The family of this 160-nucleotide RNA sequence from Nocardia nova is "c-di-AMP riboswitch aptamer (ydaO/yuaA leader)".
The family has 106 seed sequences and 7,607 matches in Rfam 15.1.
[Rfam]
RNA sequence: UUCGAAAGCCUGCCGAAGGACGGGCCCACGAACCUCGGCAGGGAAGCGGGAACGACCGGAAGCGGCCGAUCCCUUGGGGUGAAGUCCCGGAAAUCCGGGACCGGACGGCCUCUCAGUCCGAACCCGACAGCUCACCUCGCAGGCGCGGACGAGAGGAAGA
Numbered sequence: 001u002u003c004g005a006a007a008g009c010c011u012g013c014c015g016a017a018g019g020a021c022g023g024g025c026c027c028a029c030g031a032a033c034c035u036c037g038g039c040a041g042g043g044a045a046g047c048g049g050g051a052a053c054g055a056c057c058g059g060a061a062g063c064g065g066c067c068g069a070u071c072c073c074u075u076g077g078g079g080u081g082a083a084g085u086c087c088c089g090g091a092a093a094u095c096c097g098g099g100a101c102c103g104g105a106c107g108g109c110c111u112c113u114c115a116g117u118c119c120g121a122a123c124c125c126g127a128c129a130g131c132u133c134a135c136c137u138c139g140c141a142g143g144c145g146c147g148g149a150c151g152a153g154a155g156g157a158a159g160a
Stems, first nucleotide, its partner, number of pairs: 011145004019036002038140002041137002047076004077125003085100004103119004
Lineage of the source: Bacteria > Actinomycetota > Mycobacteriales > Nocardia > Nocardia nova. A reference for the family is Barrick et al. (2004), "New RNA motifs suggest an expanded scope for riboswitches in bacterial genetic control", Proc Natl Acad Sci U S A.